[Rfam]
RNA sequence: UCAGCCCAAGGCCAAGCUUAGGAGUGGCCAUCCAAGGUAAGUGCGGCCAUAGGUCGCCGCCACUCCUGUCCGAGAGGGCUUGGUCUUGGGUGGAGGA
Numbered sequence: 001u002c003a004g005c006c007c008a009a010g011g012c013c014a015a016g017c018u019u020a021g022g023a024g025u026g027g028c029c030a031u032c033c034a035a036g037g038u039a040a041g042u043g044c045g046g047c048c049a050u051a052g053g054u055c056g057c058c059g060c061c062a063c064u065c066c067u068g069u070c071c072g073a074g075a076g077g078g079c080u081u082g083g084u085c086u087u088g089g090g091u092g093g094a095g096g097a
Stems, first nucleotide, its partner, number of pairs: 005090009020067009041058001043057005068079004

Shown here is a 97-nucleotide RNA sequence, a member of the family "DUF1874 RNA". It is one of the family's seed sequences.